[Rfam]
RNA sequence: UUGGUUUAAAUCAUUGUGGGUCUACACUUUGGAAAUUGAACAUACACAAAAUUAUGGGACAUACAUUAAUUUCAUCAAA
Numbered sequence: 001u002u003g004g005u006u007u008a009a010a011u012c013a014u015u016g017u018g019g020g021u022c023u024a025c026a027c028u029u030u031g032g033a034a035a036u037u038g039a040a041c042a043u044a045c046a047c048a049a050a051a052u053u054a055u056g057g058g059a060c061a062u063a064c065a066u067u068a069a070u071u072u073c074a075u076c077a078a079a
Stems, first nucleotide, its partner, number of pairs: 001079002004076001006074001008072004013067001015065004022057003026052001028050004
RNA: MIR5269 microRNA precursor family
Organism: Medicago truncatula